Rfam assigns this 179-nucleotide sequence from Clostridium argentinense to the family "Lysine riboswitch aptamer". The family's consensus secondary structure is taken from published work. Lineage of the source: Bacteria > Bacillati > Bacillota > Clostridium > Clostridium argentinense. It scores 78 bits against the family's covariance model.
RNA sequence: UUCGUAAAUAGAGGAGCGAGUGAAUGGUAGUAUAUAUAUGCUAAGGAAAGGAACUUCCAAUGAUAUAUACGAAGGAUUUACACGCCGAAAGGGUAUACUUGUUCUUAGGUAUAUUGCUUGGGGGUAGGAAGUAAAUUUUCUACCACUGUCAUAAGAUAUUAUGAUGAGCUAUUUAUGUG
Numbered sequence: 001u002u003c004g005u006a007a008a009u010a011g012a013g014g015a016g017c018g019a020g021u022g023a024a025u026g027g028u029a030g031u032a033u034a035u036a037u038a039u040g041c042u043a044a045g046g047a048a049a050g051g052a053a054c055u056u057c058c059a060a061u062g063a064u065a066u067a068u069a070c071g072a073a074g075g076a077u078u079u080a081c082a083c084g085c086c087g088a089a090a091g092g093g094u095a096u097a098c099u100u101g102u103u104c105u106u107a108g109g110u111a112u113a114u115u116g117c118u119u120g121g122g123g124g125u126a127g128g129a130a131g132u133a134a135a136u137u138u139u140c141u142a143c144c145a146c147u148g149u150c151a152u153a154a155g156a157u158a159u160u161a162u163g164a165u166g167a168g169c170u171a172u173u174u175a176u177g178u179g
Base pairs, nucleotide, nucleotide: 006174007173008172009171010170011169016085017084018083020081021080022079023078024077030070031069032068033067034066035065036064089119090118091117092115093114094113095112096111097110098109099108120147121146123144124143125142126141127140128139129138130137149164150163151162152161153160154159